Notes
A member of the RNA family "c-di-GMP-I riboswitch aptamer" from Tumebacillus algifaecis, 92 nucleotides long. It scores 91 bits against the family's covariance model. The literature on the family includes a 2007 paper in Nucleic Acids Res by Weinberg et al., "Identification of 22 candidate structured RNAs in bacteria using the CMfinder comparative genomics pipeline". Taxonomically the source falls in Tumebacillus (Bacteria, Bacilli, Caryophanales, Alicyclobacillaceae).

RNA sequence: AAUCGAUAAUGGCAAACUCACUGAAAGGUGAGGACGCAAAGCCACGGGUCUAAGGUGUUGCUACUGCACACUAUGACAGCCGGGUUGCCGAA
Numbered sequence: 001a002a003u004c005g006a007u008a009a010u011g012g013c014a015a016a017c018u019c020a021c022u023g024a025a026a027g028g029u030g031a032g033g034a035c036g037c038a039a040a041g042c043c044a045c046g047g048g049u050c051u052a053a054g055g056u057g058u059u060g061c062u063a064c065u066g067c068a069c070a071c072u073a074u075g076a077c078a079g080c081c082g083g084g085u086u087g088c089c090g091a092a
Base pairs, nucleotide, nucleotide: 012037013036017032018031019030020029021028022027040086041085042084043083045082046081047080048077049076050075055071056070057069058068